[Rfam]
RNA sequence: CCUAUGGAGUGUUAUAAACACCAAAGUAGCUACGGCAAAAUGGGACACUAUGAAAUAGGAA
Numbered sequence: 001c002c003u004a005u006g007g008a009g010u011g012u013u014a015u016a017a018a019c020a021c022c023a024a025a026g027u028a029g030c031u032a033c034g035g036c037a038a039a040a041u042g043g044g045a046c047a048c049u050a051u052g053a054a055a056u057a058g059g060a061a
Stems, first nucleotide, its partner, number of pairs: 001059005009048005021043003029036002
RAGATH-18 RNA: a 61-nucleotide sequence from Tepidibacter thalassicus. The base pairs follow the family's consensus structure, which is taken from published work. The match comes from Rfam's covariance-model search (63 bits).